[Rfam]
RNA sequence: CAAAGUCCAAUUUGUAAGUCGCUCUGGAUAAGAGCAUCUGCUAAAUGACGAAAA
Number, nucleotide and partner (000 for none) at each position: 001c000002a000003a000004a000005g000006u000007c000008c000009a000010a000011u000012u000013u043014g041015u040016a039017a000018g000019u000020c000021g035022c034023u033024c032025u031026g000027g000028a000029u000030a000031a025032g024033a023034g022035c021036a000037u000038c000039u016040g015041c014042u000043a013044a000045a000046u000047g000048a000049c000050g000051a000052a000053a000054a000
RNA: UnaL2 LINE 3' element
Organism: Coregonus sp. 'balchen'